[Rfam]
RNA: Mammalian CPEB3 ribozyme
RNA sequence: AGUUCAGUUGCAGGGGCCAUAGAAGAAACAUUCACACGGCAGUUCCAGUCAGAUUCCUAGGAUUUGAGAAUCCUACU
Numbered sequence: 001a002g003u004u005c006a007g008u009u010g011c012a013g014g015g016g017c018c019a020u021a022g023a024a025g026a027a028a029c030a031u032u033c034a035c036a037c038g039g040c041a042g043u044u045c046c047a048g049u050c051a052g053a054u055u056c057c058u059a060g061g062a063u064u065u066g067a068g069a070a071u072c073c074u075a076c077u
Stems, first nucleotide, its partner, number of pairs: 013046005021077002024074002027071001029039001050066007